[Rfam]
RNA sequence: GGCUGGUCCGAGCAGUGGUGUUUACGACUAAUUAGUCACAACCAGUUACAGAUUCCUUUGCUCUUUCUCCAUUCCCACUGUUCCACUCAACUAGCCUUUA
Numbered sequence: 001g002g003c004u005g006g007u008c009c010g011a012g013c014a015g016u017g018g019u020g021u022u023u024a025c026g027a028c029u030a031a032u033u034a035g036u037c038a039c040a041a042c043c044a045g046u047u048a049c050a051g052a053u054u055c056c057u058u059u060g061c062u063c064u065u066u067c068u069c070c071a072u073u074c075c076c077a078c079u080g081u082u083c084c085a086c087u088c089a090a091c092u093a094g095c096c097u098u099u100a
Base pairs, nucleotide, nucleotide: 001096002095003094004093005092006091007090010088011087012084014079015078016077017076018075020074026062028060030058031057
About this RNA: The family of this 100-nucleotide RNA from Propithecus coquereli is "Y RNA". Lineage of the source: Eukaryota > Bilateria > Mammalia > Primates > Propithecus. A reference for the family is Teunissen et al. (2000), "Conserved features of Y RNAs: a comparison of experimentally derived secondary structures", Nucleic Acids Res. Y RNAs are components of the Ro ribonucleoprotein particle (Ro RNP), in association with Ro60 and La proteins. The Y RNAs and Ro60 and La proteins are well conserved, but the function of the Ro RNP is not known. In humans the RNA component can be one of four small RNAs -- hY1, hY3, hY4 and hY5. These small RNAs are predicted to fold into a conserved secondary structure containing three stem structures. The largest of the four, hY1, contains an additional hairpin. This family includes a significant number of annotated pseudogenes and the model is expected to discriminate poorly between real and Y RNA related pseudogenes.